RNA: mir-750 microRNA precursor family
Organism: Heliothis virescens
RNA sequence: CUCACGUCUGAGUUGGACAGGGGAUCUUGACAGUUUGCACCAUGUGCUGCCAGAUCUAUCUUUCCAGCUCACGCGUGAA
Numbered sequence: 001c002u003c004a005c006g007u008c009u010g011a012g013u014u015g016g017a018c019a020g021g022g023g024a025u026c027u028u029g030a031c032a033g034u035u036u037g038c039a040c041c042a043u044g045u046g047c048u049g050c051c052a053g054a055u056c057u058a059u060c061u062u063u064c065c066a067g068c069u070c071a072c073g074c075g076u077g078a079a
Stems, first nucleotide, its partner, number of pairs: 002078006009071009019061003022057006029050001031049004